Description: This 133-nucleotide sequence from Triticum aestivum belongs to the Rfam family "Plastid-psbA-1 3UTR RNA". The match comes from Rfam's covariance-model search (88 bits). Rfam describes the family as follows. Plastid psbA-1 is a non-coding RNA (ncRNA) present in plastids. It was identified in inverted repeat sequences in the 3 prime untranslate region (3UTR) of photosystem II quinone-binding protein (psbA). For this family Rfam cites "Retrograde signaling in plants: A critical review focusing on the GUN pathway and beyond" (Richter et al., Plant Commun, 2023). The family is grouped with related families in Rfam's "Plastid-psbA 3UTR RNA clan". It is annotated as a cis-regulatory element.
RNA sequence: UUGAAGUUCCAUCUUAUAAUGGAUAAGGUUGUUCUGCUAACAUAUAAGAAUUUUUUUAAGAAAGAAAAGACAGAAAUACCCAAUAUCUUGUUCUAGCGAGAUAUUAGAACAAGAUAUUGGGUAUUUCUGUCUU
Numbered sequence: 001u002u003g004a005a006g007u008u009c010c011a012u013c014u015u016a017u018a019a020u021g022g023a024u025a026a027g028g029u030u031g032u033u034c035u036g037c038u039a040a041c042a043u044a045u046a047a048g049a050a051u052u053u054u055u056u057u058a059a060g061a062a063a064g065a066a067a068a069g070a071c072a073g074a075a076a077u078a079c080c081c082a083a084u085a086u087c088u089u090g091u092u093c094u095a096g097c098g099a100g101a102u103a104u105u106a107g108a109a110c111a112a113g114a115u116a117u118u119g120g121g122u123a124u125u126u127c128u129g130u131c132u133u
Base pairs, nucleotide, nucleotide: 008023009022010021011020012019067133068132069131070130071129072128073127074126075125076124077123078122079121081119082118083117085115086114087113088112089111090110091109092108093107094106095105096104
Dot-bracket structure: .......(((((......)))))...........................................(((((((((((((.(((.((((((((((((.......)))))))))))).))).)))))))))))))